[Rfam]
RNA sequence: ACCUUUCAGGUUGCAGCUUGAUUAAUCCGCGAGGGUGACUCAGGCUGAUGGCUGGUGACUUCUCGGUCACCAGCCU
Numbered sequence: 001a002c003c004u005u006u007c008a009g010g011u012u013g014c015a016g017c018u019u020g021a022u023u024a025a026u027c028c029g030c031g032a033g034g035g036u037g038a039c040u041c042a043g044g045c046u047g048a049u050g051g052c053u054g055g056u057g058a059c060u061u062c063u064c065g066g067u068c069a070c071c072a073g074c075c076u
Stems, first nucleotide, its partner, number of pairs: 014047008050075010

Record summary:
The record is a 76-nucleotide sequence from Erwinia tracheiphila, which matches "Pseudomonas sRNA P26" in Rfam. Rfam's curators write: This small RNA (sRNA) was computationally identified in the genome of the opportunistic pathogen Pseudomonas aeruginosa and its expression verified by northern blot analysis. P26 is conserved across many Gammaproteobacteria species and appears to be consistently located between the DNA directed RNA polymerase (beta subunit) and 50S ribosomal protein L7/L12 genes.